[Rfam]
RNA sequence: UUUUUUAAGACACCCACCAUCACCAAACUCAAAAGCCCGGGCAGUUGUUCGGGCUUUU
Numbered sequence: 001u002u003u004u005u006u007a008a009g010a011c012a013c014c015c016a017c018c019a020u021c022a023c024c025a026a027a028c029u030c031a032a033a034a035g036c037c038c039g040g041g042c043a044g045u046u047g048u049u050c051g052g053g054c055u056u057u058u
Stems, first nucleotide, its partner, number of pairs: 033056009

Caulobacter sRNA CC0196: a 58-nucleotide RNA from Asticcacaulis sp. AC402. Lineage of the source: Bacteria > Alphaproteobacteria > Caulobacterales > Caulobacteraceae > Asticcacaulis. Rfam classes the family as a small RNA. For this family Rfam cites "Small non-coding RNAs in Caulobacter crescentus" (Landt et al., Mol Microbiol, 2008). Pairs were carried over by alignment from the consensus structure, which was predicted with RNAalifold. A search with the family's covariance model found it, with a score of 38 bits.